The record is a 74-nucleotide sequence from Treponema sp. Marseille-Q4132, which matches "tRNA" in Rfam.
[Rfam]
Nucleotides: 074
Base pairs, nucleotide, nucleotide: 001073002072003071004070005069006068007067010026011025012024013023028044029043030042031041032040050066051065052064053063054062
Number, partner (000 for none) and nucleotide at each position: 001073g002072g003071g004070g005069a006068u007067a008000u009000a010026g011025c012024u013023c014000a015000g016000c017000u018000g019000g020000c021000u022000a023013g024012a025011g026010c027000a028044c029043c030042g031041g032040c033000u034000u035000u036000g037000c038000a039000a040032g041031c042030c043029g044028g045000g046000u047000g048000u049000c050066a051065g052064g053063g054062g055000u056000u057000c058000a059000a060000a061000u062054c063053c064052c065051c066050u067007u068006a069005u070004c071003u072002c073001c074000a
Annotation
The source organism's lineage runs through Bacteria, Pseudomonadati, Spirochaetota, Spirochaetia and Treponema. The family's RNA type in Rfam is transfer RNA.